[Rfam]
RNA sequence: CAGUGAAAUUGCGCCAAAGCGCAGUGAAAUAUUGCCUGCGCAAUGUGAAAUAUGGCUCCGCCAUGUGAAA
Numbered sequence: 001c002a003g004u005g006a007a008a009u010u011g012c013g014c015c016a017a018a019g020c021g022c023a024g025u026g027a028a029a030u031a032u033u034g035c036c037u038g039c040g041c042a043a044u045g046u047g048a049a050a051u052a053u054g055g056c057u058c059c060g061c062c063a064u065g066u067g068a069a070a
Base pairs, nucleotide, nucleotide: 008025009024010023011022012021013020014019029046030045031044032043033042034041050066051065052064053063054062055061056060